[Rfam]
RNA sequence: UGGCAAUUAUGCUAAAUUUAAGGCUUGUUUCUCAAAACAUUCGCAGUUGCUGCCUAAGAGCUUGUGCCUCGCCAGGCUUGAGAGUUGAUUCCUUCCUUGGAUGUCUGAGCCU
Numbered sequence: 001u002g003g004c005a006a007u008u009a010u011g012c013u014a015a016a017u018u019u020a021a022g023g024c025u026u027g028u029u030u031c032u033c034a035a036a037a038c039a040u041u042c043g044c045a046g047u048u049g050c051u052g053c054c055u056a057a058g059a060g061c062u063u064g065u066g067c068c069u070c071g072c073c074a075g076g077c078u079u080g081a082g083a084g085u086u087g088a089u090u091c092c093u094u095c096c097u098u099g100g101a102u103g104u105c106u107g108a109g110c111c112u
Stems, first nucleotide, its partner, number of pairs: 002111003059078006

The record is a 112-nucleotide RNA from Triticum aestivum, which matches "Small nucleolar RNA SNORD14" in Rfam. Rfam's curators write: U14 small nucleolar RNA (U14 snoRNA) is required for early cleavages of eukaryotic precursor rRNAs. By type it is a C/D-box small nucleolar RNA. Gene Ontology terms of the family: nucleolus and RNA processing. Pairs were carried over by alignment from the consensus structure, which was predicted with PFOLD.